[Rfam]
RNA sequence: CCAGCACAUGACGAAGUGAGCGGGCUCUCGUGGCCCUGGAAAGUCCCCGGGCCUUUCAUCGCAGAGAUGCGGCCGCGGAGACGCGGAAAGGUCUCAGCGCUCGCGCUCUCCUCGUUUGAGGGGGCAGAGACAUGUGUGGAGCCUUUGGGCGUGAGCCGAGAUCAUACUGGCCAAUUUCACAGUUAUUCACUUGAUCCAUUAAUUGGGAUUAACAGAACGGGGCUUACGAUCGUGUGCAA
Numbered sequence: 001c002c003a004g005c006a007c008a009u010g011a012c013g014a015a016g017u018g019a020g021c022g023g024g025c026u027c028u029c030g031u032g033g034c035c036c037u038g039g040a041a042a043g044u045c046c047c048c049g050g051g052c053c054u055u056u057c058a059u060c061g062c063a064g065a066g067a068u069g070c071g072g073c074c075g076c077g078g079a080g081a082c083g084c085g086g087a088a089a090g091g092u093c094u095c096a097g098c099g100c101u102c103g104c105g106c107u108c109u110c111c112u113c114g115u116u117u118g119a120g121g122g123g124g125c126a127g128a129g130a131c132a133u134g135u136g137u138g139g140a141g142c143c144u145u146u147g148g149g150c151g152u153g154a155g156c157c158g159a160g161a162u163c164a165u166a167c168u169g170g171c172c173a174a175u176u177u178c179a180c181a182g183u184u185a186u187u188c189a190c191u192u193g194a195u196c197c198a199u200u201a202a203u204u205g206g207g208a209u210u211a212a213c214a215g216a217a218c219g220g221g222g223c224u225u226a227c228g229a230u231c232g233u234g235u236g237c238a239a
Stems, first nucleotide, its partner, number of pairs: 004237008014192006022036005041225003045222004060071004073086005099156006110149003122144004130137002194209004
RNA: RNase MRP